[Rfam]
RNA sequence: CCAUCAUCAGUAGCGGUUUUAACUUACUUUGUUAUAUAAGUAAUUAAAAUCAAACUGUGGUCAAGUAUGAUGAUCGGAGCCGAAUGGCUUAGAAGAUGCAUCCGUUCCGUCCACAGAGAUGACUGAGUAGCUGUCCCGGUCGACGUCUCAGGUGGGACGUUGUUGGGUUGUUGCUCGUACAUUU
Numbered sequence: 001c002c003a004u005c006a007u008c009a010g011u012a013g014c015g016g017u018u019u020u021a022a023c024u025u026a027c028u029u030u031g032u033u034a035u036a037u038a039a040g041u042a043a044u045u046a047a048a049a050u051c052a053a054a055c056u057g058u059g060g061u062c063a064a065g066u067a068u069g070a071u072g073a074u075c076g077g078a079g080c081c082g083a084a085u086g087g088c089u090u091a092g093a094a095g096a097u098g099c100a101u102c103c104g105u106u107c108c109g110u111c112c113a114c115a116g117a118g119a120u121g122a123c124u125g126a127g128u129a130g131c132u133g134u135c136c137c138g139g140u141c142g143a144c145g146u147c148u149c150a151g152g153u154g155g156g157a158c159g160u161u162g163u164u165g166g167g168u169u170g171u172u173g174c175u176c177g178u179a180c181a182u183u184u
Stems, first nucleotide, its partner, number of pairs: 015051008024043006055116006062109001069102004073097003079088003127174005135167005141162009
Rfam assigns this 184-nucleotide RNA sequence from Schizosaccharomyces japonicus to the family "small nucleolar RNA snR99". Gene Ontology terms of the family: nucleolus and RNA processing. The sequence is in the family's curated seed alignment. Rfam 15.1 lists 6 matches to the family in 3 species. The family's RNA type in Rfam is H/ACA-box small nucleolar RNA.